c-di-GMP-II-GAG riboswitch aptamer: a 137-nucleotide RNA sequence.
RNA sequence: GACUGACACGGACGCAGAGAUCCUCGGGCACCACAGCUACACGGUCGCCCGUCGCGUCGAAGGGGCAUCCCCCAAGGGGCACUCCCAACGGCUCGAUGGCUCGAGGGGAGCGAGUGGCGAGACCGGCCGUGAACGUG
Numbered sequence: 001g002a003c004u005g006a007c008a009c010g011g012a013c014g015c016a017g018a019g020a021u022c023c024u025c026g027g028g029c030a031c032c033a034c035a036g037c038u039a040c041a042c043g044g045u046c047g048c049c050c051g052u053c054g055c056g057u058c059g060a061a062g063g064g065g066c067a068u069c070c071c072c073c074a075a076g077g078g079g080c081a082c083u084c085c086c087a088a089c090g091g092c093u094c095g096a097u098g099g100c101u102c103g104a105g106g107g108g109a110g111c112g113a114g115u116g117g118c119g120a121g122a123c124c125g126g127c128c129g130u131g132a133a134c135g136u137g
Base pairs, nucleotide, nucleotide: 002136003135007131008130009129010128011127013112014111015110022106023105024104025103026102027101028100029099043124044123045120046119047118048117049116
The literature on the family includes a 2017 paper in Proc Natl Acad Sci U S A by Weinberg et al., "Bioinformatic analysis of riboswitch structures uncovers variant classes with altered ligand specificity".
It is one of the family's seed sequences.